[Rfam]
The record is a 100-nucleotide sequence from Lonsdalea quercina, which matches "Tryptophan operon leader" in Rfam.
RNA sequence: GCAGGUUGGUGGCGCUUAUCCCUCUGAGGGCGAAUCGAUCGCGCAUACCCAUUAUCUGAUAUGCAGCAUCCUUAAGCCCGCUCAAAGCGGGUUUUUUUAU
Numbered sequence: 001g002c003a004g005g006u007u008g009g010u011g012g013c014g015c016u017u018a019u020c021c022c023u024c025u026g027a028g029g030g031c032g033a034a035u036c037g038a039u040c041g042c043g044c045a046u047a048c049c050c051a052u053u054a055u056c057u058g059a060u061a062u063g064c065a066g067c068a069u070c071c072u073u074a075a076g077c078c079c080g081c082u083c084a085a086a087g088c089g090g091g092u093u094u095u096u097u098u099a100u
Stems, first nucleotide, its partner, number of pairs: 009042004014036001016034002020030004075093007
Its family is annotated with transcriptional attenuation by ribosome and tryptophan biosynthetic process in the Gene Ontology. On this family, see Kolter and Yanofsky, Annu Rev Genet 1982: "Attenuation in amino acid biosynthetic operons". Rfam describes the family as follows. At least 6 amino acid operons are known to be regulated by attenuation. The match comes from Rfam's covariance-model search (54 bits). The family's RNA type in Rfam is cis-regulatory leader.